[Rfam]
Plant small nucleolar RNA R71: a 104-nucleotide RNA sequence from Arachis hypogaea. The family's RNA type in Rfam is C/D-box small nucleolar RNA. It scores 40 bits against the family's covariance model.
RNA sequence: AUGUCAGGAGGACACCUCUUGAUCAGUUGCUUGUAUCUUUCCAAAGCAUCAUAGAGGUAUUCACCCUCUUUUUGUCUGAAGGUUUGAAUUUCCACCCUGAGCUU
Numbered sequence: 001a002u003g004u005c006a007g008g009a010g011g012a013c014a015c016c017u018c019u020u021g022a023u024c025a026g027u028u029g030c031u032u033g034u035a036u037c038u039u040u041c042c043a044a045a046g047c048a049u050c051a052u053a054g055a056g057g058u059a060u061u062c063a064c065c066c067u068c069u070u071u072u073u074g075u076c077u078g079a080a081g082g083u084u085u086g087a088a089u090u091u092c093c094a095c096c097c098u099g100a101g102c103u104u
Stems, first nucleotide, its partner, number of pairs: 001104001003102002005099002054071002057068001